RNA sequence: UCUUGUUACCACUGGGAUACACUCUGUGCUCGCUCUGAAUUAUGGUAGUGAACACAGCUGGUGGUAUCUCAGUGGUCGCAACUAU
Numbered sequence: 001u002c003u004u005g006u007u008a009c010c011a012c013u014g015g016g017a018u019a020c021a022c023u024c025u026g027u028g029c030u031c032g033c034u035c036u037g038a039a040u041u042a043u044g045g046u047a048g049u050g051a052a053c054a055c056a057g058c059u060g061g062u063g064g065u066a067u068c069u070c071a072g073u074g075g076u077c078g079c080a081a082c083u084a085u
Stems, first nucleotide, its partner, number of pairs: 008076005015070001016068002019065002021062003024057003028053001030051002
RNA: mir-317 microRNA precursor family
Organism: Hermetia illucens